The record is a 121-nucleotide RNA, which matches "LOOT RNA" in Rfam. Pairs were carried over by alignment from the consensus structure, which is taken from published work. It is annotated as a small RNA. The sequence is in the family's curated seed alignment.
RNA sequence: UGCCUAAACCACCAGCGCAAGCUGGUCGCAUGGCGACUAACUAAGACCAUAGAAAGCACUGAACCCCGCGUUCAGCAGCUUUCUAUGGCCAUGCCCGAAAGGGUAUGGGGCCGCAAGGCUC
Number, nucleotide and partner (000 for none) at each position: 001u035002g034003c033004c032005u000006a000007a000008a000009c028010c000011a026012c025013c024014a023015g022016c000017g000018c000019a000020a000021g000022c015023u014024g013025g012026u011027c000028g009029c000030a000031u000032g004033g003034c002035g001036a000037c000038u000039a000040a000041c000042u000043a000044a000045g000046a000047c088048c087049a086050u085051a084052g083053a082054a081055a080056g079057c078058a000059c075060u074061g073062a072063a071064c070065c000066c000067c000068g000069c000070g064071u063072u062073c061074a060075g059076c000077a000078g057079c056080u055081u054082u053083c052084u051085a050086u049087g048088g047089c000090c107091a106092u105093g104094c103095c102096c101097g000098a000099a000100a000101g096102g095103g094104u093105a092106u091107g090108g121109g120110g119111c118112c117113g000114c000115a000116a000117g112118g111119c110120u109121c108